Rfam assigns this 107-nucleotide RNA sequence from Devosia litorisediminis to the family "Rhizobiales sRNA Atu_At1". Taxonomically the source falls in Devosia (Bacteria, Pseudomonadati, Pseudomonadota, Alphaproteobacteria). The family's consensus secondary structure was predicted with CMfinder.

RNA sequence: GACCAGCGCGCGUCAAUCGGACAUGGCGGCACAGGGAACGGGGUGGUUUUUCCGAUUUCCCGCCCCGGCCAACGAAGCGGCAGCCGAGCCCUUAUCCCGCCCGCGCU
Numbered sequence: 001g002a003c004c005a006g007c008g009c010g011c012g013u014c015a016a017u018c019g020g021a022c023a024u025g026g027c028g029g030c031a032c033a034g035g036g037a038a039c040g041g042g043g044u045g046g047u048u049u050u051u052c053c054g055a056u057u058u059c060c061c062g063c064c065c066c067g068g069c070c071a072a073c074g075a076a077g078c079g080g081c082a083g084c085c086g087a088g089c090c091c092u093u094a095u096c097c098c099g100c101c102c103g104c105g106c107u
Stems, first nucleotide, its partner, number of pairs: 006106004012022003025101003028097002033092004039067007068081003